[Rfam]
RNA: Small nucleolar RNA psi18S-1377
RNA sequence: UCGUCCCCGUGUUAUUUGCGACGCCUUUUCCAAGCGUUGCGAUCGUCAAAGGGGACGCACAUCACCAAGUGCCAAUAACUCGUUAUUGUAUGCCACAGACGCGUUUUGCGGGCUUGCAUCUCCAUAUAUUGGCCACAGUC
Number, nucleotide and partner (000 for none) at each position: 001u000002c057003g056004u055005c054006c053007c052008c000009g000010u048011g047012u000013u000014a000015u000016u042017u041018g040019c039020g038021a037022c036023g000024c000025c000026u000027u000028u000029u000030c000031c000032a000033a000034g000035c000036g022037u021038u020039g019040c018041g017042a016043u000044c000045g000046u000047c011048a010049a000050a000051g000052g007053g006054g005055a004056c003057g002058c000059a000060c000061a000062u000063c000064a000065c000066c000067a000068a000069g000070u000071g000072c000073c000074a000075a000076u000077a000078a000079c000080u000081c000082g000083u000084u000085a000086u000087u118088g117089u116090a000091u000092g000093c000094c000095a000096c000097a000098g000099a000100c000101g000102c000103g000104u000105u000106u000107u000108g000109c000110g000111g000112g000113c000114u000115u000116g089117c088118a087119u000120c000121u000122c000123c000124a000125u000126a000127u000128a000129u000130u000131g000132g000133c000134c000135a000136c000137a000138g000139u000140c000